The record is a 35-nucleotide RNA from Ailuropoda melanoleuca, which matches "Iron response element I" in Rfam. For this family Rfam cites "Identification of the iron-responsive element for the translational regulation of human ferritin mRNA" (Hentze et al., Science, 1987). Pairs were carried over by alignment from the consensus structure, which is taken from published work. It scores 43 bits against the family's covariance model. NCBI's taxonomy places the organism under Eukaryota, Craniata, Mammalia, Carnivora, Ailuropoda.

RNA sequence: CUGUCUCUUGCAUCAACAGUGUUUGAACAAAACAG
Dot-bracket structure: ((((.(.(.(..(((((...).)))).)).)))))